[Rfam]
RNA sequence: CUGGGCGCAGUGGUUUAUCGAUCUCUUCCUUGCCUUGUGCUGGUCCGGCCGGGAGUGGUGGUUCAAGCGUUUUAUUGUUGCAGCAGCUCGCAAACAACGCGGGAAUCGGUCGAUAAACCUCUGCAUCCAG
Numbered sequence: 001c002u003g004g005g006c007g008c009a010g011u012g013g014u015u016u017a018u019c020g021a022u023c024u025c026u027u028c029c030u031u032g033c034c035u036u037g038u039g040c041u042g043g044u045c046c047g048g049c050c051g052g053g054a055g056u057g058g059u060g061g062u063u064c065a066a067g068c069g070u071u072u073u074a075u076u077g078u079u080g081c082a083g084c085a086g087c088u089c090g091c092a093a094a095c096a097a098c099g100c101g102g103g104a105a106u107c108g109g110u111c112g113a114u115a116a117a118c119c120u121c122u123g124c125a126u127c128c129a130g
Base pairs, nucleotide, nucleotide: 001130002129003128004127005126007124008123009122010121012119013118014117015116016115017114018113019112020111021110022109023108026105027104028103029102030101032100033099035097036096037095

Rfam assigns this 130-nucleotide RNA sequence from Zea mays to the family "MIR162_2 microRNA precursor family". Its Rfam clan is "MIR167 microRNA precursor clan". The sequence is in the family's curated seed alignment. Lineage of the source: Eukaryota > Streptophytina > Mesangiospermae > Poaceae > Zea. Its family is annotated with RISC complex and miRNA-mediated post-transcriptional gene silencing in the Gene Ontology.